[Rfam]
RNA: Archaeal small subunit ribosomal RNA, nucleotides 1 to 504
RNA sequence: AUUCCGGUUGAUCCUGCCGGAGGCCAUUGCUAUUGGAGUCCGAUUUAGCCAUGCUAGUCGAGCGGGUUUAGACCCGCGGCGAAGAGCUCAGUGACACGUGGCCAAACUACCCUGUGGAGACGGACACCCUCGGGAAACUGAGGUUAACCCGUCACGCCGCUCCCACGCUGGAACGCCGGGAGCACGAAACGCUUCGGCGCCACAGGAUGUGGCUGCGGCCGAUUAGGUAGACGGUGGGGUAACGGCCCACCGUGCCGAUAAUUGGUACGGGUUGUGAGAGCAAGAGCCCGGAGACGGAAUCUGAGACAAGAUUCCGGGCCCUACGGGGCGCAGCAGGCGCGAAACCUUUACACUGCACGCGAGUGCGAUAAGGGGACUCCAAGUGCGAGGGCAUACAGUCCUCGCUUUUCUGGACCGUAAGGUGGUCCAGGAACAAGUGCUGGGCAAGACCGGUGCCAGCCGCCGCGGUAAUACCGGCAGCACGAGUGAUGGCCGAUCUUAUUG
Numbered sequence: 001a002u003u004c005c006g007g008u009u010g011a012u013c014c015u016g017c018c019g020g021a022g023g024c025c026a027u028u029g030c031u032a033u034u035g036g037a038g039u040c041c042g043a044u045u046u047a048g049c050c051a052u053g054c055u056a057g058u059c060g061a062g063c064g065g066g067u068u069u070a071g072a073c074c075c076g077c078g079g080c081g082a083a084g085a086g087c088u089c090a091g092u093g094a095c096a097c098g099u100g101g102c103c104a105a106a107c108u109a110c111c112c113u114g115u116g117g118a119g120a121c122g123g124a125c126a127c128c129c130u131c132g133g134g135a136a137a138c139u140g141a142g143g144u145u146a147a148c149c150c151g152u153c154a155c156g157c158c159g160c161u162c163c164c165a166c167g168c169u170g171g172a173a174c175g176c177c178g179g180g181a182g183c184a185c186g187a188a189a190c191g192c193u194u195c196g197g198c199g200c201c202a203c204a205g206g207a208u209g210u211g212g213c214u215g216c217g218g219c220c221g222a223u224u225a226g227g228u229a230g231a232c233g234g235u236g237g238g239g240u241a242a243c244g245g246c247c248c249a250c251c252g253u254g255c256c257g258a259u260a261a262u263u264g265g266u267a268c269g270g271g272u273u274g275u276g277a278g279a280g281c282a283a284g285a286g287c288c289c290g291g292a293g294a295c296g297g298a299a300u301c302u303g304a305g306a307c308a309a310g311a312u313u314c315c316g317g318g319c320c321c322u323a324c325g326g327g328g329c330g331c332a333g334c335a336g337g338c339g340c341g342a343a344a345c346c347u348u349u350a351c352a353c354u355g356c357a358c359g360c361g362a363g364u365g366c367g368a369u370a371a372g373g374g375g376a377c378u379c380c381a382a383g384u385g386c387g388a389g390g391g392c393a394u395a396c397a398g399u400c401c402u403c404g405c406u407u408u409u410c411u412g413g414a415c416c417g418u419a420a421g422g423u424g425g426u427c428c429a430g431g432a433a434c435a436a437g438u439g440c441u442g443g444g445c446a447a448g449a450c451c452g453g454u455g456c457c458a459g460c461c462g463c464c465g466c467g468g469u470a471a472u473a474c475c476g477g478c479a480g481c482a483c484g485a486g487u488g489a490u491g492g493c494c495g496a497u498c499u500u501a502u503u504g
Stems, first nucleotide, its partner, number of pairs: 004020005022494010033382009042340001048338003052335003057080003062077006087293003097217007106210002111206007119153004128143006159183006167176002191198002219265003226256003231253008268290004272283004295316006318329004346372001348371003354367005385405008410430007437483006450477004459466002